[Rfam]
The family of this 75-nucleotide sequence from Acetobacteraceae bacterium H6797 is "Makes More Granules Regulator RNA (mmgR)". The base pairs follow the family's consensus structure. It scores 43 bits against the family's covariance model. It is annotated as a small RNA.
RNA sequence: AGCGAAGGCGUUCCUGGACGUUUCUUCCCUAGACUGGCCCGGCCCCCUUUGGAGCCGGGCUUUUUUUAUGCGCGC
Numbered sequence: 001a002g003c004g005a006a007g008g009c010g011u012u013c014c015u016g017g018a019c020g021u022u023u024c025u026u027c028c029c030u031a032g033a034c035u036g037g038c039c040c041g042g043c044c045c046c047c048u049u050u051g052g053a054g055c056c057g058g059g060c061u062u063u064u065u066u067u068a069u070g071c072g073c074g075c
Stems, first nucleotide, its partner, number of pairs: 008019001011016001037060007045052001